[Rfam]
Nucleotides: 102
Stems, first nucleotide, its partner, number of pairs: 016092007025083004030078005036072002039070001041068006
Number, partner (000 for none) and nucleotide at each position: 001000u002000c003000c004000a005000a006000u007000g008000g009000u010000c011000u012000g013000g014000g015000u016092c017091g018090g019089a020088c021087c022086u023000c024000c025083g026082c027081u028080g029000u030078u031077u032076u033075u034074c035000u036072c037071c038000g039070c040000g041068g042067u043066g044065a045064u046063a047000c048000u049000c050000c051000a052000a053000a054000g055000a056000a057000a058000g059000u060000c061000g062000u063046u064045a065044u066043c067042a068041c069000c070039g071037g072036g073000u074034g075033a076032a077031a078030a079000c080028u081027g082026g083025u084000a085000g086022a087021g088020g089019u090018c091017c092016g093000a094000u095000u096000c097000a098000g099000u100000c101000g102000g